[Rfam]
RNA sequence: GCCCUGGUCGGAACCAGGGCCGACGAACAGGAG
Numbered sequence: 001g002c003c004c005u006g007g008u009c010g011g012a013a014c015c016a017g018g019g020c021c022g023a024c025g026a027a028c029a030g031g032a033g
Stems, first nucleotide, its partner, number of pairs: 001020008
Notes: This 33-nucleotide sequence belongs to the Rfam family "L31-Coriobacteria ribosomal protein leader". The family is grouped with related families in Rfam's "Ribosomal Protein L31 Leader clan". The literature on the family includes a 2020 paper in BMC Microbiol by Eckert and Weinberg, "Discovery of 20 novel ribosomal leader candidates in bacteria and archaea". Pairs were carried over by alignment from the consensus structure, which is taken from published work. By type it is a cis-regulatory leader. The sequence is in the family's curated seed alignment.